Shown here is a 339-nucleotide part of an RNA from Urbifossiella limnaea, a member of the family "Bacterial large subunit ribosomal RNA". NCBI's taxonomy places the organism under Bacteria, Pseudomonadati, Gemmatales, Gemmataceae, Urbifossiella.
RNA sequence: CGAGAGAACUCUCGUGAAGGAACUCUGCAAAUUGGCCCCGUAACUUCGGGAUAAGGGGCGCUCACCUCCGGGUGAGCCGCAGCGAAAAGGGUCUAGCGACUGUUUACUAAAAACACAGGUCUGUGCGAAGGCGUGAGCCGCGGUAUACAGACUGACGCCUGCCCGGUGCCGGUAAGUUAAGGGAGGCGGUUAGCCCGCAAGGGCGAAGCUGGCGACCGAAGCUCCGGUAAACGGCGGCCGUAACUAUGACGGUCCUAAGGUAGCGAAGUUCCUUGUCGGGUAAGUUCCGACCUGCAUGAAUGGCGUAACGACUGGACCACUGUCUCCACGAGAGACUCG
Numbered sequence: 001c002g003a004g005a006g007a008a009c010u011c012u013c014g015u016g017a018a019g020g021a022a023c024u025c026u027g028c029a030a031a032u033u034g035g036c037c038c039c040g041u042a043a044c045u046u047c048g049g050g051a052u053a054a055g056g057g058g059c060g061c062u063c064a065c066c067u068c069c070g071g072g073u074g075a076g077c078c079g080c081a082g083c084g085a086a087a088a089g090g091g092u093c094u095a096g097c098g099a100c101u102g103u104u105u106a107c108u109a110a111a112a113a114c115a116c117a118g119g120u121c122u123g124u125g126c127g128a129a130g131g132c133g134u135g136a137g138c139c140g141c142g143g144u145a146u147a148c149a150g151a152c153u154g155a156c157g158c159c160u161g162c163c164c165g166g167u168g169c170c171g172g173u174a175a176g177u178u179a180a181g182g183g184a185g186g187c188g189g190u191u192a193g194c195c196c197g198c199a200a201g202g203g204c205g206a207a208g209c210u211g212g213c214g215a216c217c218g219a220a221g222c223u224c225c226g227g228u229a230a231a232c233g234g235c236g237g238c239c240g241u242a243a244c245u246a247u248g249a250c251g252g253u254c255c256u257a258a259g260g261u262a263g264c265g266a267a268g269u270u271c272c273u274u275g276u277c278g279g280g281u282a283a284g285u286u287c288c289g290a291c292c293u294g295c296a297u298g299a300a301u302g303g304c305g306u307a308a309c310g311a312c313u314g315g316a317c318c319a320c321u322g323u324c325u326c327c328a329c330g331a332g333a334g335a336c337u338c339g
Stems, first nucleotide, its partner, number of pairs: 001339004009334008018325003035059005044049001060077007078082001090318007097310002101115003118153008126143001130139003156305004161235003166232002168228005175223003181217002185213001187211004193204004236254006255259001265292001275291006